Shown here is a 72-nucleotide RNA sequence, a member of the family "Hepatitis C virus stem-loop SL2531 and SL2549AU". Rfam classes the family as a cis-regulatory element.
RNA sequence: UGCUGGCAGAUGCCCGCAUUUGUGCCUGCUUGUGGAUGAUGUUGCUGGUGUCGCAAGUGGAGGCGGCUCUUG
Numbered sequence: 001u002g003c004u005g006g007c008a009g010a011u012g013c014c015c016g017c018a019u020u021u022g023u024g025c026c027u028g029c030u031u032g033u034g035g036a037u038g039a040u041g042u043u044g045c046u047g048g049u050g051u052c053g054c055a056a057g058u059g060g061a062g063g064c065g066g067c068u069c070u071u072g
Base pairs, nucleotide, nucleotide: 006023007022008021009020010019011018012017024067025066027065028064029063030062031061034058037055038054
Overview
The literature on the family includes a 2016 paper in Mol Cell by Pirakitikulr et al., "The Coding Region of the HCV Genome Contains a Network of Regulatory RNA Structures".